[Rfam]
Description: Shown here is a 69-nucleotide RNA sequence from Aequorivita sublithincola, a member of the family "S15-Flavobacteria ribosomal protein leader". NCBI's taxonomy places the organism under Bacteria, Pseudomonadati, Bacteroidota, Flavobacteriales, Aequorivita sublithincola. It is annotated as a cis-regulatory leader. The family is grouped with related families in Rfam's "Ribosomal Protein S15 Leader clan". A reference for the family is Eckert and Weinberg (2020), "Discovery of 20 novel ribosomal leader candidates in bacteria and archaea", BMC Microbiol.
RNA sequence: UACUUUUGCAACCUUGAUUAUCAAAACGGUAAUCGAUACAUAAAAAUCAUUUACACAAAUAUUAGCAUG
Numbered sequence: 001u002a003c004u005u006u007u008g009c010a011a012c013c014u015u016g017a018u019u020a021u022c023a024a025a026a027c028g029g030u031a032a033u034c035g036a037u038a039c040a041u042a043a044a045a046a047u048c049a050u051u052u053a054c055a056c057a058a059a060u061a062u063u064a065g066c067a068u069g
Stems, first nucleotide, its partner, number of pairs: 014036008